RNA: L31-Actinobacteria ribosomal protein leader
Organism: Mycobacterium sp. ITM-2016-00318
RNA sequence: UCGGUUCCGGUUCACGUCCGAGCGCUCCAGGUAAUGGCGCGGGCGACCCGGCGGCC
Numbered sequence: 001u002c003g004g005u006u007c008c009g010g011u012u013c014a015c016g017u018c019c020g021a022g023c024g025c026u027c028c029a030g031g032u033a034a035u036g037g038c039g040c041g042g043g044c045g046a047c048c049c050g051g052c053g054g055c056c
Stems, first nucleotide, its partner, number of pairs: 003056003007051004015045006022038002